[Rfam]
RNA sequence: UAAAUCGUGGAGAACCCUUUCAAUCAAGUAAUGUAAUGAUUCGAGGGGUUCUCACAAAC
Numbered sequence: 001u002a003a004a005u006c007g008u009g010g011a012g013a014a015c016c017c018u019u020u021c022a023a024u025c026a027a028g029u030a031a032u033g034u035a036a037u038g039a040u041u042c043g044a045g046g047g048g049u050u051c052u053c054a055c056a057a058a059c
Stems, first nucleotide, its partner, number of pairs: 010053011022041005